[Rfam]
RNA sequence: CACUGAACCCCGGGGGGCCGGCUCGACCGGCUGAGAGGUGGCUGUUGGCCACGACCCGCCGAACCUGAUCCGGUUAGAACCGGCGGAGGGAGGGUGCGCCGAAACCCG
Numbered sequence: 001c002a003c004u005g006a007a008c009c010c011c012g013g014g015g016g017g018c019c020g021g022c023u024c025g026a027c028c029g030g031c032u033g034a035g036a037g038g039u040g041g042c043u044g045u046u047g048g049c050c051a052c053g054a055c056c057c058g059c060c061g062a063a064c065c066u067g068a069u070c071c072g073g074u075u076a077g078a079a080c081c082g083g084c085g086g087a088g089g090g091a092g093g094g095u096g097c098g099c100c101g102a103a104a105c106c107c108g
Base pairs, nucleotide, nucleotide: 007095008094009093010092011058012057013056014055017031018030019029020028021027038052039051040050041049042048064089065088066087070083071082072081073080

A member of the RNA family "TPP riboswitch aptamer (THI element)" from alpha proteobacterium AAP81b, 108 nucleotides long.
Rfam's curators write: Vitamin B(1) in its active form thiamin pyrophosphate (TPP) is an essential coenzyme that is synthesised by coupling of pyrimidine and thiazole moieties in bacteria.